[Rfam]
RNA: Group II catalytic intron D1-D4-3
Organism: Anaerobiospirillum thomasii
RNA sequence: GACAUCGCGAGGUGUUGGUCGGAGGGAGCGGGCUGGCAUAACUCAACGAGCUGACGAACAGAAAUCGGAUCAGGCAUCAAUUAGUAGGUGAUUCUGCAUGAUAAGAAGUAGCCUAAAUUCUGCCGUAACUUUUGGUGUAAAUCCGGCGGUGCGGAGUUAAAGGAAGGGGU
Dot-bracket structure: ((((((....))))))...........((.......(...((((..((.((((...........(((((....(((.(((...(.((((..((((........))))...))))..............)..))).)))...))))))))).))))))....)......))